[Rfam]
RNA sequence: UGUUGGGUUCUGGAUGUUAGGAUGACGAGUCGACUCGGGCUCCGCACUAGGUUUGGUCGCCUAGGGGAUGGAGAUAUGGAAAGGGUCUCGUGUGGUAUCAGUCGGUCGAAAGACGCGCUUCCAACAUGGGCCUAUGGUCGGAUAAGUCUUAGCAAUACCAGCCAGCA
Numbered sequence: 001u002g003u004u005g006g007g008u009u010c011u012g013g014a015u016g017u018u019a020g021g022a023u024g025a026c027g028a029g030u031c032g033a034c035u036c037g038g039g040c041u042c043c044g045c046a047c048u049a050g051g052u053u054u055g056g057u058c059g060c061c062u063a064g065g066g067g068a069u070g071g072a073g074a075u076a077u078g079g080a081a082a083g084g085g086u087c088u089c090g091u092g093u094g095g096u097a098u099c100a101g102u103c104g105g106u107c108g109a110a111a112g113a114c115g116c117g118c119u120u121c122c123a124a125c126a127u128g129g130g131c132c133u134a135u136g137g138u139c140g141g142a143u144a145a146g147u148c149u150u151a152g153c154a155a156u157a158c159c160a161g162c163c164a165g166c167a
Stems, first nucleotide, its partner, number of pairs: 001167006010161004015154009026140002029138003035079003040073005047064006083133005089128005096123001100119002103117002105114003
Dot-bracket structure: ((((((...((((.(((((((((..((.(((...(((..(((((..((((((......))))))....)))))...)))...(((((.(((((..(...((.(((((....))).))))...)))))))))))..))))).....)))))))))...))))))))))
RNA: Tombusvirus 3' cap-independent translation element
Organism: Tombusvirus lycopersici